[Rfam]
RNA sequence: CAACGGGCUUUGUCCAAUGAAACACUUAUCGGACAUCAAGGGUUCAGAUCAGUGUUCACUGGACAAAGAUCGUUA
Numbered sequence: 001c002a003a004c005g006g007g008c009u010u011u012g013u014c015c016a017a018u019g020a021a022a023c024a025c026u027u028a029u030c031g032g033a034c035a036u037c038a039a040g041g042g043u044u045c046a047g048a049u050c051a052g053u054g055u056u057c058a059c060u061g062g063a064c065a066a067a068g069a070u071c072g073u074u075a
Stems, first nucleotide, its partner, number of pairs: 002074005008068009018058004023054004028049003032044003
This 75-nucleotide RNA sequence from Nicotiana tabacum belongs to the Rfam family "MIR6146 microRNA precursor family". The family has 2 seed sequences and 13 matches in Rfam 15.1. Taxonomically the source falls in Nicotiana (Eukaryota, Streptophytina, Spermatophyta, Magnoliopsida). The sequence is in the family's curated seed alignment.